[Rfam]
RNA sequence: UGUCGAGAUUUUUCUCGGUAGUUAACUGCAGACGGUUUUAUUUUCCUCGACAGUUAACUGCCGAGAAACAU
Numbered sequence: 001u002g003u004c005g006a007g008a009u010u011u012u013u014c015u016c017g018g019u020a021g022u023u024a025a026c027u028g029c030a031g032a033c034g035g036u037u038u039u040a041u042u043u044u045c046c047u048c049g050a051c052a053g054u055u056a057a058c059u060g061c062c063g064a065g066a067a068a069c070a071u
Base pairs, nucleotide, nucleotide: 012067013066015064016063017062018061019060020059021058022057023056024055025054026053027052028051